[Rfam]
RNA sequence: GUUGUUAAAAAAAUAUCGACUCGUAUAAUGUCAGGGAUAUGGCCUGAGAGUCUCUACCCAGUAACCGUAAAUUACUGGACUACGAGUGAAAGUGAACCUAGG
Numbered sequence: 001g002u003u004g005u006u007a008a009a010a011a012a013a014u015a016u017c018g019a020c021u022c023g024u025a026u027a028a029u030g031u032c033a034g035g036g037a038u039a040u041g042g043c044c045u046g047a048g049a050g051u052c053u054c055u056a057c058c059c060a061g062u063a064a065c066c067g068u069a070a071a072u073u074a075c076u077g078g079a080c081u082a083c084g085a086g087u088g089a090a091a092g093u094g095a096a097c098c099u100a101g102g
Stems, first nucleotide, its partner, number of pairs: 019087007029049001031047005058078007
RNA: Purine riboswitch aptamer